6S / SsrS RNA: a 158-nucleotide RNA from Methyloceanibacter superfactus. A search with the family's covariance model found it, with a score of 64 bits. By type it is a non-coding RNA gene.
Nucleotides: 158
Base pairs, nucleotide, nucleotide: 004154005153006152007151008150009149010148011147013144014143015142017141018140019139032127033126034125035124037123038122040118041117042116056101057100058099060097061096062095063094064093069090070089071088072087073086074085075084076083077082
Number, partner (000 for none) and nucleotide at each position: 001000g002000g003000u004154g005153g006152g007151c008150u009149g010148c011147g012000a013144g014143g015142u016000g017141c018140g019139u020000u021000a022000g023000g024000a025000g026000c027000a028000u029000u030000u031000a032127u033126c034125c035124c036000a037123g038122g039000g040118c041117c042116c043000u044000a045000u046000a047000a048000g049000a050000u051000c052000c053000u054000a055000u056101g057100g058099g059000a060097g061096c062095u063094g064093a065000c066000c067000c068000u069090g070089g071088c072087g073086g074085g075084g076083a077082c078000u079000g080000u081000g082077g083076u084075c085074u086073c087072c088071g089070u090069c091000a092000c093064u094063u095062g096061g097060c098000g099058c100057c101056c102000a103000c104000c105000u106000a107000c108000a109000u110000u111000a112000c113000g114000u115000a116042g117041g118040g119000a120000g121000a122038c123037c124035g125034g126033g127032a128000u129000c130000u131000a132000a133000g134000c135000u136000c137000c138000g139019a140018c141017g142015g143014c144013c145000a146000u147011c148010g149009c150008g151007g152006c153005c154004c155000u156000a157000c158000c